[Rfam]
RNA sequence: ACACACACAGAGUGGCCAGAUUAAUAUGAUCUAUGAAUCCAUAUUAAUCUGGCCACUCUGUGUGUGU
Numbered sequence: 001a002c003a004c005a006c007a008c009a010g011a012g013u014g015g016c017c018a019g020a021u022u023a024a025u026a027u028g029a030u031c032u033a034u035g036a037a038u039c040c041a042u043a044u045u046a047a048u049c050u051g052g053c054c055a056c057u058c059u060g061u062g063u064g065u066g067u
Stems, first nucleotide, its partner, number of pairs: 004064014019049010

Background
mir-9256 microRNA precursor family: a 67-nucleotide sequence from Cnephaeus nilssonii. Gene Ontology terms of the family: miRNA-mediated post-transcriptional gene silencing and RISC complex. The family's consensus secondary structure was predicted with RNAalifold. Lineage of the source: Eukaryota > Bilateria > Eutheria > Vespertilionidae > Cnephaeus.